This 97-nucleotide RNA sequence from endosymbiont of unidentified scaly snail isolate Monju belongs to the Rfam family "Bacterial small signal recognition particle RNA". It scores 67 bits against the family's covariance model. Rfam links the family to the GO terms SRP-dependent cotranslational protein targeting to membrane, signal sequence recognition and signal recognition particle, plasma membrane targeting.
[Rfam]
RNA sequence: CUGUUGGCCUCCCGCGACGCUAGGUUGUGAACCUGGUCAGGCCCGGAAGGGAGCAGCCACAGCAGCUGACGCGUGCGCCGGGAAUCGCUGGCAGGGU
Numbered sequence: 001c002u003g004u005u006g007g008c009c010u011c012c013c014g015c016g017a018c019g020c021u022a023g024g025u026u027g028u029g030a031a032c033c034u035g036g037u038c039a040g041g042c043c044c045g046g047a048a049g050g051g052a053g054c055a056g057c058c059a060c061a062g063c064a065g066c067u068g069a070c071g072c073g074u075g076c077g078c079c080g081g082g083a084a085u086c087g088c089u090g091g092c093a094g095g096g097u
Stems, first nucleotide, its partner, number of pairs: 004091005010083005015075001017074004023067006034059004042051003